Notes:
Histidine operon leader: a 121-nucleotide sequence from Lacimicrobium alkaliphilum. On this family, see Kolter and Yanofsky, Annu Rev Genet 1982: "Attenuation in amino acid biosynthetic operons". Its family is annotated with histidine biosynthetic process in the Gene Ontology. Rfam's curators write: At least 6 amino acid operons are known to be regulated by attenuation. In each a leader sequence of 150-200 bp is found upstream of the first gene in the operon. This leader sequence can assume two different secondary structures known as the terminator and the anti-terminator structure.

RNA sequence: UCAUCACCAUCAUCACCCGGCAUAACCUUUCAGGUUCGUGCUGGAAGGUCGUGUAAAUCGCCUUCCAGUGGAAUCCCAGAUUAAGAGACCCCCGGAAGGCAACUUCCGGGGGUUUUUCGUU
Numbered sequence: 001u002c003a004u005c006a007c008c009a010u011c012a013u014c015a016c017c018c019g020g021c022a023u024a025a026c027c028u029u030u031c032a033g034g035u036u037c038g039u040g041c042u043g044g045a046a047g048g049u050c051g052u053g054u055a056a057a058u059c060g061c062c063u064u065c066c067a068g069u070g071g072a073a074u075c076c077c078a079g080a081u082u083a084a085g086a087g088a089c090c091c092c093c094g095g096a097a098g099g100c101a102a103c104u105u106c107c108g109g110g111g112g113u114u115u116u117u118c119g120u121u
Stems, first nucleotide, its partner, number of pairs: 008040003017034002020031001041068008084117015